Shown here is a 104-nucleotide RNA from Rhodanobacter sp. B05, a member of the family "SAH (S-adenosyl-L-homocysteine) riboswitch aptamer".
RNA sequence: CCCGCCGAGGGGCGCUGCGACCGUUUGAUGUGAAUGCGGCUCCGUCCGCUUCACCCGACCGGCCAGGCUCGGCGCGGCACGUUCCACAACGGCGCUCUCACGCG
Dot-bracket structure: ..((((((............(((.((..............................)).)))......))))))..............................
Source information: A search with the family's covariance model found it, with a score of 56 bits.